Description
Shown here is a 104-nucleotide RNA sequence from Sporosarcina sp. BI001-red, a member of the family "Purine riboswitch aptamer". The base pairs follow the family's consensus structure, which is taken from published work. The source organism's lineage runs through Bacteria, Bacillati, Bacillota, Bacilli and Sporosarcina.

RNA sequence: UAUAAGAAAUGAAUAUAUUCUCGUAUAUGCUCAGUAAUAGGGUCUGAGCGUCUCUACCAGGUUCCCAUUGAAAGAACCGGACUACGAGUUGAAGAAUAGUGCGC
Numbered sequence: 001u002a003u004a005a006g007a008a009a010u011g012a013a014u015a016u017a018u019u020c021u022c023g024u025a026u027a028u029g030c031u032c033a034g035u036a037a038u039a040g041g042g043u044c045u046g047a048g049c050g051u052c053u054c055u056a057c058c059a060g061g062u063u064c065c066c067a068u069u070g071a072a073a074g075a076a077c078c079g080g081a082c083u084a085c086g087a088g089u090u091g092a093a094g095a096a097u098a099g100u101g102c103g104c
Stems, first nucleotide, its partner, number of pairs: 020088006029049006058080001060078005
From the family's description: Riboswitches are metabolite binding domains within certain messenger RNAs that serve as precision sensors for their corresponding targets.